[Rfam]
Rfam assigns this 328-nucleotide RNA sequence from Hemiprocne comata to the family "Nuclear RNase P".
RNA sequence: UCCGGGGGAAGCUCACCGCCGAGGCCACUAACGGGGUGCCCGUCACCCGGCGCUCCGCCUCGGGGAAGGUCUGAGGGAAGGGCCGCCCGCGGCUCCAGCAGAGCCCCGCCCGCGACGGGCGAGUGAGCCACCAGCAAGGGGGGGCGCCGCGCUGGGGCCGGCCUGGGCAGGAGAAACCGGCAGGAUUCCACCCUGACUCGGGGAAACCUCCGGUGGAUGCUCGUGGCCCCGCGGUGCUUUGAGACAGACUCACGGCCGGCGAUUGUUGAGUCCAAUGGGUGAGGUGGGGCGCGUCCCUACAACCCAAUUCAGACUACUCUCCCCCGGA
Numbered sequence: 001u002c003c004g005g006g007g008g009a010a011g012c013u014c015a016c017c018g019c020c021g022a023g024g025c026c027a028c029u030a031a032c033g034g035g036g037u038g039c040c041c042g043u044c045a046c047c048c049g050g051c052g053c054u055c056c057g058c059c060u061c062g063g064g065g066a067a068g069g070u071c072u073g074a075g076g077g078a079a080g081g082g083c084c085g086c087c088c089g090c091g092g093c094u095c096c097a098g099c100a101g102a103g104c105c106c107c108g109c110c111c112g113c114g115a116c117g118g119g120c121g122a123g124u125g126a127g128c129c130a131c132c133a134g135c136a137a138g139g140g141g142g143g144g145c146g147c148c149g150c151g152c153u154g155g156g157g158c159c160g161g162c163c164u165g166g167g168c169a170g171g172a173g174a175a176a177c178c179g180g181c182a183g184g185a186u187u188c189c190a191c192c193c194u195g196a197c198u199c200g201g202g203g204a205a206a207c208c209u210c211c212g213g214u215g216g217a218u219g220c221u222c223g224u225g226g227c228c229c230c231g232c233g234g235u236g237c238u239u240u241g242a243g244a245c246a247g248a249c250u251c252a253c254g255g256c257c258g259g260c261g262a263u264u265g266u267u268g269a270g271u272c273c274a275a276u277g278g279g280u281g282a283g284g285u286g287g288g289g290c291g292c293g294u295c296c297c298u299a300c301a302a303c304c305c306a307a308u309u310c311a312g313a314c315u316a317c318u319c320u321c322c323c324c325c326g327g328a
Stems, first nucleotide, its partner, number of pairs: 001328004007322003012283006020062005034048005071312005081257004091105005107121005123253005129247001143238009284300006
Source information: By type it is a ribozyme. Ribonuclease P (RNase P) is a ubiquitous endoribonuclease, found in archaea, bacteria and eukarya as well as chloroplasts and mitochondria. Its best characterised activity is the generation of mature 5'-ends of tRNAs by cleaving the 5'-leader elements of precursor-tRNAs. Cellular RNase Ps are ribonucleoproteins. RNA from bacterial RNase Ps retains its catalytic activity in the absence of the protein subunit, i.e. it is a ribozyme. Isolated eukaryotic and archaeal RNase P RNA has not been shown to retain its catalytic function, but is still essential for the catalytic activity of the holoenzyme. Although the archaeal and eukaryotic holoenzyme s have a much greater protein content than the bacterial ones, the RNA cores from all the three lineages are homologous -- helices corresponding to P1, P2, P3, P4, and P10/11 are common to all cellular RNase P RNAs. Yet, there is considerable sequence variation, particularly among the eukaryotic RNAs.